[Rfam]
RNA sequence: ACGUUGUUGAAAUCACACCACACACCAACCGACACUGCGACGCGGGGUGCCUGUCUGCGACAGGUUGCGUUAUGGGGUUGCGUGGAGGUCUAAC
Numbered sequence: 001a002c003g004u005u006g007u008u009g010a011a012a013u014c015a016c017a018c019c020a021c022a023c024a025c026c027a028a029c030c031g032a033c034a035c036u037g038c039g040a041c042g043c044g045g046g047g048u049g050c051c052u053g054u055c056u057g058c059g060a061c062a063g064g065u066u067g068c069g070u071u072a073u074g075g076g077g078u079u080g081c082g083u084g085g086a087g088g089u090c091u092a093a094c
Stems, first nucleotide, its partner, number of pairs: 023084003026080005036074002039071006049065005